Notes
The record is an 88-nucleotide RNA from Bacillus sp. V5-8f, which matches "c-di-GMP-I riboswitch aptamer" in Rfam.

[Rfam]
RNA sequence: AGUGAAAAAGGGCAAAUCAUAGGAAACUAUGAGACGCAAAGCCAUGGGCCUAACCCACUUUUGUGUGGAAUGGUAGCCGGUUGCCACA
Numbered sequence: 001a002g003u004g005a006a007a008a009a010g011g012g013c014a015a016a017u018c019a020u021a022g023g024a025a026a027c028u029a030u031g032a033g034a035c036g037c038a039a040a041g042c043c044a045u046g047g048g049c050c051u052a053a054c055c056c057a058c059u060u061u062u063g064u065g066u067g068g069a070a071u072g073g074u075a076g077c078c079g080g081u082u083g084c085c086a087c088a
Stems, first nucleotide, its partner, number of pairs: 012037002017032006040082004046078002048074003055068004

The family's consensus secondary structure is taken from published work.
NCBI's taxonomy places the organism under Bacteria, Bacillota, Caryophanales, Bacillaceae, Bacillus.